The family of this 105-nucleotide sequence from Prunus persica is "MIR6274 microRNA precursor family". Its family is annotated with RISC complex and miRNA-mediated post-transcriptional gene silencing in the Gene Ontology. The family has 2 seed sequences and 342 matches in Rfam 15.1. A search with the family's covariance model found it, with a score of 80 bits.

RNA sequence: GGAUAACACUAUUUUGAUAUUCCCGCCCAAUAACACAAUGAUACGUGAAAAAAUUAUCUUACGUAUCAUUGCGUUAUUGGUCAAAAAUAGCAAAAAAUGUUAUUC
Numbered sequence: 001g002g003a004u005a006a007c008a009c010u011a012u013u014u015u016g017a018u019a020u021u022c023c024c025g026c027c028c029a030a031u032a033a034c035a036c037a038a039u040g041a042u043a044c045g046u047g048a049a050a051a052a053a054u055u056a057u058c059u060u061a062c063g064u065a066u067c068a069u070u071g072c073g074u075u076a077u078u079g080g081u082c083a084a085a086a087a088u089a090g091c092a093a094a095a096a097a098u099g100u101u102a103u104u105c
Base pairs, nucleotide, nucleotide: 002104003103004102005101012095013094014093015092016091018089019088020087025082027080028079029078030077031076032075033074034073036071037070038069039068040067041066042065043064044063045062046061047060048059050057